[Rfam]
RNA sequence: GGCCUCGUAGCUUAGUGGUAAAGCACCUGGAGUUACAUUCGGGAGUCGCAGGUUCGAUCCCUGUCGUGGCCU
Numbered sequence: 001g002g003c004c005u006c007g008u009a010g011c012u013u014a015g016u017g018g019u020a021a022a023g024c025a026c027c028u029g030g031a032g033u034u035a036c037a038u039u040c041g042g043g044a045g046u047c048g049c050a051g052g053u054u055c056g057a058u059c060c061c062u063g064u065c066g067u068g069g070c071c072u
Base pairs, nucleotide, nucleotide: 001071002070003069004068006066007065010024011023012022013021026043027042028041029040030039048064049063050062051061052060
RNA: tRNA
Organism: Chrysodeixis includens